[Rfam]
RNA sequence: AGGAGGAUGAUGAAAGCAAUCAGACGGAUUCCCAUUGAUAAUUACAUGAGAACAUUACCAGCUACUUCUGACUCUU
Numbered sequence: 001a002g003g004a005g006g007a008u009g010a011u012g013a014a015a016g017c018a019a020u021c022a023g024a025c026g027g028a029u030u031c032c033c034a035u036u037g038a039u040a041a042u043u044a045c046a047u048g049a050g051a052a053c054a055u056u057a058c059c060a061g062c063u064a065c066u067u068c069u070g071a072c073u074c075u076u
Stems, first nucleotide, its partner, number of pairs: 001076005